[Rfam]
Nucleotides: 180
Stems, first nucleotide, its partner, number of pairs: 003075004008070003015064004020058003024055002027048002030045001032044001034042001086107003089103002092100002115175005121169003125165002131159003136154003141150003
Number, partner (000 for none) and nucleotide at each position: 001000u002000u003075g004074g005073g006072c007000u008070g009069g010068g011000a012000a013000u014000u015064g016063g017062u018061u019000c020058c021057u022056g023000u024055g025054u026000a027048g028047c029000u030045g031000g032044g033000c034042c035000u036000g037000c038000u039000g040000u041000a042034g043000u044032c045030c046000u047028g048027c049000c050000u051000u052000g053000u054025a055024c056022c057021a058020g059000c060000u061018a062017a063016c064015c065000u066000g067000a068010c069009c070008u071000u072006g073005c074004c075003c076000u077000a078000g079000a080000u081000g082000a083000a084000a085000a086107u087106c088105u089103g090102g091000c092100a093099g094000c095000c096000u097000c098000c099093u100092u101000u102090u103089u104000g105088g106087g107086g108000u109000c110000u111000g112000c113000c114000c115175u116174g117173u118172g119171c120000a121169g122168u123167a124000a125165c126164a127000g128000g129000u130000g131159u132158g133157a134000g135000g136154a137153u138152u139000c140000u141150a142149g143148c144000a145000g146000c147000a148143g149142c150141u151000u152138g153137a154136u155000g156000g157133u158132c159131a160000u161000g162000u163000a164126u165125g166000a167123u168122a169121c170000a171119g172118c173117a174116u175115a176000c177000a178000g179000a180000u
Notes
Shown here is a 180-nucleotide RNA from Podarcis lilfordi, a member of the family "Small Cajal body specific RNA 16". The source organism's lineage runs through Eukaryota, Chordata, Craniata, Unidentata and Podarcis. Rfam describes the family as follows. scaRNAs are a specific class of small nuclear RNAs which localise to the Cajal bodies and guide the modification of RNA polymerase II transcribed spliceosomal RNAs U1, U2, U4, U5 and U12. ACA47 belongs to the H/ACA box class of guide RNAs as it has the predicted hairpin-hinge-hairpin-tail structure, the conserved H/ACA-box motifs and is found associated with GAR1. ACA47 is predicted to guide the pseudouridylation of residue U5 of the U1 spliceosomal snRNA. Rfam classes the family as a small Cajal body RNA. On this family, see Darzacq et al., EMBO J 2002: "Cajal body-specific small nuclear RNAs: a novel class of 2'-O-methylation and pseudouridylation guide RNAs". It scores 127 bits against the family's covariance model. The base pairs follow the family's consensus structure, which was predicted with RNAfold.